About this RNA:
The record is a 62-nucleotide RNA sequence from Enterococcus canis, which matches "Fluoride riboswitch aptamer (crcB RNA motif)" in Rfam. NCBI's taxonomy places the organism under Bacteria, Bacillati, Bacilli, Enterococcaceae, Enterococcus. It scores 39 bits against the family's covariance model. Rfam links the family to the GO terms positive regulation of gene expression and response to fluoride. The family's consensus secondary structure is taken from published work.
Nucleotides: 062
Stems, first nucleotide, its partner, number of pairs: 011024003016053006032043004
Number, partner (000 for none) and nucleotide at each position: 001000u002000u003000u004000c005000u006000u007000g008000u009000a010000a011024g012023g013022g014000a015000u016053g017052g018051u019050g020049c021048u022013c023012c024011c025000g026000a027000u028000a029000a030000c031000c032043g033042c034041u035040a036000a037000a038000a039000u040035u041034a042033g043032c044000u045000g046000a047000u048021g049020g050019c051018g052017c053016c054000u055000g056000u057000u058000g059000u060000a061000a062000g